[Rfam]
RNA: SAM riboswitch aptamer (S box leader)
Organism: Gracilibacillus halophilus
RNA sequence: AUCUUAUCAAGAGAAGCUGAGGGACUGGGCCCUAUGAAGCUUCAGCAACCAGCAAAAUGUAUGGUGCUAAUUCCAGUGGCAUAAUGAGAUAGCCGAAGAUAAGAA
Numbered sequence: 001a002u003c004u005u006a007u008c009a010a011g012a013g014a015a016g017c018u019g020a021g022g023g024a025c026u027g028g029g030c031c032c033u034a035u036g037a038a039g040c041u042u043c044a045g046c047a048a049c050c051a052g053c054a055a056a057a058u059g060u061a062u063g064g065u066g067c068u069a070a071u072u073c074c075a076g077u078g079g080c081a082u083a084a085u086g087a088g089a090u091a092g093c094c095g096a097a098g099a100u101a102a103g104a105a
Stems, first nucleotide, its partner, number of pairs: 002104007013043005021032003026076001028074002044068004049064002052060003072097001078094003